[Rfam]
RNA sequence: AGACUAUAAGGGGUGCAGGGAAAGUAUUUCCUGCCGUAUUCAGGAGGGUGCUCAGCUGACAUGUUUUUUGUCAGCGCCGCAGGGAAC
Numbered sequence: 001a002g003a004c005u006a007u008a009a010g011g012g013g014u015g016c017a018g019g020g021a022a023a024g025u026a027u028u029u030c031c032u033g034c035c036g037u038a039u040u041c042a043g044g045a046g047g048g049u050g051c052u053c054a055g056c057u058g059a060c061a062u063g064u065u066u067u068u069u070g071u072c073a074g075c076g077c078c079g080c081a082g083g084g085a086a087c
Stems, first nucleotide, its partner, number of pairs: 015034008055075007
Shown here is an 87-nucleotide RNA from Cellulosilyticum lentocellum, a member of the family "Clostridiales-2 RNA". Rfam 15.1 lists 285 matches to the family in 26 species.